[Rfam]
RNA sequence: CCGUGAACUUUGUAUCGUGCAUAUUACUUAGAUGAAUUCUAGAGAGUCGCAUAAAGA
Numbered sequence: 001c002c003g004u005g006a007a008c009u010u011u012g013u014a015u016c017g018u019g020c021a022u023a024u025u026a027c028u029u030a031g032a033u034g035a036a037u038u039c040u041a042g043a044g045a046g047u048c049g050c051a052u053a054a055a056g057a
Stems, first nucleotide, its partner, number of pairs: 019037001022034004

A member of the RNA family "Plastid-ndhJ 3UTR RNA" from Hibiscus syriacus, 57 nucleotides long. For this family Rfam cites "Retrograde signaling in plants: A critical review focusing on the GUN pathway and beyond" (Richter et al., Plant Commun, 2023). The source organism's lineage runs through Eukaryota, Spermatophyta, eudicotyledons, Malvoideae and Hibiscus. Plastid ndhJ is a non-coding RNA (ncRNA) present in plastids. It was identified as a short stem-loop motif in the 3 prime untranslate region (3UTR) of ndhJ gene. Pairs were carried over by alignment from the consensus structure, which was predicted with LocARNA. The family's RNA type in Rfam is cis-regulatory element.